[Rfam]
RNA sequence: UGAUACCAAGUGUCAAAAGGUCUAAAAUCCAACGCAAGCUUGCUUGCAGGAGGAUUUUGGAACUUGGGGCACGUAAAACAUGAGUAAGUAGCCAUUUUUCGAAGAAAAAUGAGCGGAUUACGAAUGUUUAAAGAUUGCGAGAGUGCAAAGCACGUAGCAAUCUGGUAUCA
Numbered sequence: 001u002g003a004u005a006c007c008a009a010g011u012g013u014c015a016a017a018a019g020g021u022c023u024a025a026a027a028u029c030c031a032a033c034g035c036a037a038g039c040u041u042g043c044u045u046g047c048a049g050g051a052g053g054a055u056u057u058u059g060g061a062a063c064u065u066g067g068g069g070c071a072c073g074u075a076a077a078a079c080a081u082g083a084g085u086a087a088g089u090a091g092c093c094a095u096u097u098u099u100c101g102a103a104g105a106a107a108a109a110u111g112a113g114c115g116g117a118u119u120a121c122g123a124a125u126g127u128u129u130a131a132a133g134a135u136u137g138c139g140a141g142a143g144u145g146c147a148a149a150g151c152a153c154g155u156a157g158c159a160a161u162c163u164g165g166u167a168u169c170a
Base pairs, nucleotide, nucleotide: 001170002169003168004167005166006165007164011071012070013069014068018064019063021061022060023059024058025057026056027055028054029053030052033049034047035046036045037044038043076129077128078127079126080125081124084121085120086119087118091114092113093111094110095109096108097107098106099105100104132163133162134161135160136159137158138157143153144152145151146150
Clostridiales-1 RNA: a 170-nucleotide sequence from Clostridium sp. CAG:7. A search with the family's covariance model found it, with a score of 126 bits. The organism belongs to Clostridium, within Bacteria. It is annotated as a small RNA.